[Rfam]
RNA sequence: GAGCUAUGAAGAAAUUGGCAGUAGCGUCGGUUGGGUCCUUCGCAUUCAUCUGACCUCCAGUUGAUACAGCCGCAACCCUGAGCUU
Numbered sequence: 001g002a003g004c005u006a007u008g009a010a011g012a013a014a015u016u017g018g019c020a021g022u023a024g025c026g027u028c029g030g031u032u033g034g035g036u037c038c039u040u041c042g043c044a045u046u047c048a049u050c051u052g053a054c055c056u057c058c059a060g061u062u063g064a065u066a067c068a069g070c071c072g073c074a075a076c077c078c079u080g081a082g083c084u085u
Stems, first nucleotide, its partner, number of pairs: 001085004